A member of the RNA family "c-di-GMP-I riboswitch aptamer" from Jeotgalibacillus soli, 85 nucleotides long.
Its family is annotated with cyclic-di-GMP binding in the Gene Ontology.
The match comes from Rfam's covariance-model search (86 bits).
The organism belongs to Jeotgalibacillus, within Bacteria.
Nucleotides: 085
Base pairs, nucleotide, nucleotide: 012037013036017032018031019030020029021028022027040079041078042077043076045075046074047073048070049069050068055064056063057062
Number, partner (000 for none) and nucleotide at each position: 001000c002000u003000a004000a005000g006000a007000u008000a009000a010000a011000g012037g013036c014000a015000a016000a017032c018031u019030a020029g021028c022027u023000g024000a025000a026000a027022g028021g029020c030019u031018a032017g033000g034000g035000c036013g037012c038000a039000a040079a041078g042077u043076c044000a045075c046074a047073g048070a049069u050068c051000u052000a053000a054000g055064g056063c057062a058000u059000u060000u061000a062057u063056g064055c065000u066000a067000u068050g069049a070048u071000a072000g073047c074046u075045g076043g077042a078041c079040u080000g081000c082000c083000g084000a085000a